The family of this 57-nucleotide sequence from Trema andersonii is "Plastid-ndhJ 3UTR RNA". For this family Rfam cites "Retrograde signaling in plants: A critical review focusing on the GUN pathway and beyond" (Richter et al., Plant Commun, 2023). Pairs were carried over by alignment from the consensus structure, which was predicted with LocARNA. Rfam classes the family as a cis-regulatory element. Lineage of the source: Eukaryota > Euphyllophyta > Spermatophyta > fabids > Trema. Rfam's curators write: Plastid ndhJ is a non-coding RNA (ncRNA) present in plastids. It was identified as a short stem-loop motif in the 3 prime untranslate region (3UTR) of ndhJ gene.
RNA sequence: UACCAAUUAGUGUACCGCACACAUUAUUUAGAUGUGCUUCAGAAGGUCACAUGGGAC
Numbered sequence: 001u002a003c004c005a006a007u008u009a010g011u012g013u014a015c016c017g018c019a020c021a022c023a024u025u026a027u028u029u030a031g032a033u034g035u036g037c038u039u040c041a042g043a044a045g046g047u048c049a050c051a052u053g054g055g056a057c
Base pairs, nucleotide, nucleotide: 020036022034023033024032025031